[Rfam]
RNA sequence: CCUGCCCCUAGAGGCCUUGCAGGUGUGGCUGCUGUGUCCCAUGUGGGUCAAUAGGUGGCAGAGAGGAGAAAGGCUAUGUCUUCGGUCUGUGUUCUGACCUAGGAACAUCUGAAUGAUUAGUAACCUAACAUC
Numbered sequence: 001c002c003u004g005c006c007c008c009u010a011g012a013g014g015c016c017u018u019g020c021a022g023g024u025g026u027g028g029c030u031g032c033u034g035u036g037u038c039c040c041a042u043g044u045g046g047g048u049c050a051a052u053a054g055g056u057g058g059c060a061g062a063g064a065g066g067a068g069a070a071a072g073g074c075u076a077u078g079u080c081u082u083c084g085g086u087c088u089g090u091g092u093u094c095u096g097a098c099c100u101a102g103g104a105a106c107a108u109c110u111g112a113a114u115g116a117u118u119a120g121u122a123a124c125c126u127a128a129c130a131u132c
Stems, first nucleotide, its partner, number of pairs: 002061005007055004013049003020045002024041002027038003068129001071126003075122003082116003086112002089109001090107005
RNA: Small nucleolar RNA SNORA17